[Rfam]
RNA sequence: CCCACCACUGUACCUGUCUUGCAAUGCAUUGACUGGCACGGUCCAGAGGUGAGCUGACAGAAAAUGCCAACUUAGGAAACGGAGUUAUUCAUCUUGUGGGUGACUCUGUGCCGAAGUCUGGGAACAGGC
Numbered sequence: 001c002c003c004a005c006c007a008c009u010g011u012a013c014c015u016g017u018c019u020u021g022c023a024a025u026g027c028a029u030u031g032a033c034u035g036g037c038a039c040g041g042u043c044c045a046g047a048g049g050u051g052a053g054c055u056g057a058c059a060g061a062a063a064a065u066g067c068c069a070a071c072u073u074a075g076g077a078a079a080c081g082g083a084g085u086u087a088u089u090c091a092u093c094u095u096g097u098g099g100g101u102g103a104c105u106c107u108g109u110g111c112c113g114a115a116g117u118c119u120g121g122g123a124a125c126a127g128g129c
Stems, first nucleotide, its partner, number of pairs: 005049002008046003018036002021033001022031002065122001067120001069119001070117004075112002080108006088100003
Notes:
Rfam assigns this 129-nucleotide RNA from Eudyptula minor to the family "Small nucleolar RNA SNORA65". Lineage of the source: Eukaryota > Tetrapoda > Amniota > Sauropsida > Eudyptula. Rfam describes the family as follows. U65 belongs to the H/ACA class of snoRNAs which are thought to guide the sites of modification of uridines to pseudouridines. A reference for the family is Huttenhofer et al. (2001), "RNomics: an experimental approach that identifies 201 candidates for novel, small, non-messenger RNAs in mouse", EMBO J. The family has 14 seed sequences and 1,089 matches in Rfam 15.1.